[Rfam]
RNA sequence: CAAUUAAGAUGCAGGGCCACAGCAGACAUGUUUAUGUUGUGGUCCCUGUCGGAUUCUAAUGAAUCUGAGAAUUCUGCU
Numbered sequence: 001c002a003a004u005u006a007a008g009a010u011g012c013a014g015g016g017c018c019a020c021a022g023c024a025g026a027c028a029u030g031u032u033u034a035u036g037u038u039g040u041g042g043u044c045c046c047u048g049u050c051g052g053a054u055u056c057u058a059a060u061g062a063a064u065c066u067g068a069g070a071a072u073u074c075u076g077c078u
Base pairs, nucleotide, nucleotide: 014045015044016043017042018041021078022077023076024075025074026073028040029039030038050067051066052065053064054063055062056061

Shown here is a 78-nucleotide RNA from Alligator mississippiensis, a member of the family "Mammalian CPEB3 ribozyme". Taxonomically the source falls in Alligator (Eukaryota, Metazoa, Chordata, Teleostomi). A search with the family's covariance model found it, with a score of 59 bits. Rfam links the family to the GO term RNA nuclease activity. The literature on the family includes a 2004 paper in Nature by Teixeira et al., "Autocatalytic RNA cleavage in the human beta-globin pre-mRNA promotes transcription termination".